[Rfam]
RNA sequence: GUGUCGGUGCUUUUCUAGUAUAAAUGCGUCGCUCUUUCGGUGGUAUUUCAUUGGGAGUAACAGCCUUGGGGUUGAAAUCCCAUCUCGAGGAGAGGUUUUAGUCGGUAGGCGCUACGGCGAAUCCGACACUACCCCCCUUCAGGGGGUGUAUUUUAAAGAUUUCCCCUCCUCGAGGCUA
Numbered sequence: 001g002u003g004u005c006g007g008u009g010c011u012u013u014u015c016u017a018g019u020a021u022a023a024a025u026g027c028g029u030c031g032c033u034c035u036u037u038c039g040g041u042g043g044u045a046u047u048u049c050a051u052u053g054g055g056a057g058u059a060a061c062a063g064c065c066u067u068g069g070g071g072u073u074g075a076a077a078u079c080c081c082a083u084c085u086c087g088a089g090g091a092g093a094g095g096u097u098u099u100a101g102u103c104g105g106u107a108g109g110c111g112c113u114a115c116g117g118c119g120a121a122u123c124c125g126a127c128a129c130u131a132c133c134c135c136c137c138u139u140c141a142g143g144g145g146g147u148g149u150a151u152u153u154u155a156a157a158g159a160u161u162u163c164c165c166c167u168c169c170u171c172g173a174g175g176c177u178a
Stems, first nucleotide, its partner, number of pairs: 033056003038053001062177005086172005092165001094163001101127005110119003129148001132146004